[Rfam]
Lysine riboswitch aptamer: a 166-nucleotide sequence from Firmicutes bacterium CAG:631. A search with the family's covariance model found it, with a score of 89 bits. Pairs were carried over by alignment from the consensus structure, which is taken from published work. The organism belongs to Bacillota, within Bacteria.
RNA sequence: AAGAUUGAUAGAGGCGCAGUAAAAAUGAGUAUCUAUGGGAGAAGACAUUCGUUGAACAUAGAAAAAGGUGCUACUGCCGAAACAUCAAAUGGGUACAUUUGAGAGUUGGGUUGCAAUGAAAGACAUUGCAAACUCCUACAAUAUUUGUAGAGGAGCUAUUGAUACA
Numbered sequence: 001a002a003g004a005u006u007g008a009u010a011g012a013g014g015c016g017c018a019g020u021a022a023a024a025a026u027g028a029g030u031a032u033c034u035a036u037g038g039g040a041g042a043a044g045a046c047a048u049u050c051g052u053u054g055a056a057c058a059u060a061g062a063a064a065a066a067g068g069u070g071c072u073a074c075u076g077c078c079g080a081a082a083c084a085u086c087a088a089a090u091g092g093g094u095a096c097a098u099u100u101g102a103g104a105g106u107u108g109g110g111u112u113g114c115a116a117u118g119a120a121a122g123a124c125a126u127u128g129c130a131a132a133c134u135c136c137u138a139c140a141a142u143a144u145u146u147g148u149a150g151a152g153g154a155g156c157u158a159u160u161g162a163u164a165c166a
Stems, first nucleotide, its partner, number of pairs: 006161006016077006024069001032062006081107003085102007108134002111131008136150006